Shown here is a 127-nucleotide RNA from Tupaia belangeri, a member of the family "Small nucleolar RNA SNORA65".
RNA sequence: CCCGCCACUGCACCUGACCAGUUGUGCUGGCGGUACAAUCAGUGGUGUGCUGAUAGUAAACCCCAGCUUAGGAAUCAAGGUUGUUCUUCAUGUGGAUGACUAUGCCGGAAGAGUUCGUGGACCAGCC
Numbered sequence: 001c002c003c004g005c006c007a008c009u010g011c012a013c014c015u016g017a018c019c020a021g022u023u024g025u026g027c028u029g030g031c032g033g034u035a036c037a038a039u040c041a042g043u044g045g046u047g048u049g050c051u052g053a054u055a056g057u058a059a060a061c062c063c064c065a066g067c068u069u070a071g072g073a074a075u076c077a078a079g080g081u082u083g084u085u086c087u088u089c090a091u092g093u094g095g096a097u098g099a100c101u102a103u104g105c106c107g108g109a110a111g112a113g114u115u116c117g118u119g120g121a122c123c124a125g126c127c
Stems, first nucleotide, its partner, number of pairs: 005045006017034003021031001022029001061120002064117001065115004071106002076104002079101003084096003
For this family Rfam cites "RNomics: an experimental approach that identifies 201 candidates for novel, small, non-messenger RNAs in mouse" (Huttenhofer et al., EMBO J, 2001). Rfam 15.1 lists 1,089 matches to the family in 619 species. U65 belongs to the H/ACA class of snoRNAs which are thought to guide the sites of modification of uridines to pseudouridines. The organism belongs to Tupaia belangeri, within Eukaryota. It scores 74 bits against the family's covariance model. The family is grouped with related families in Rfam's "SNORA65 clan".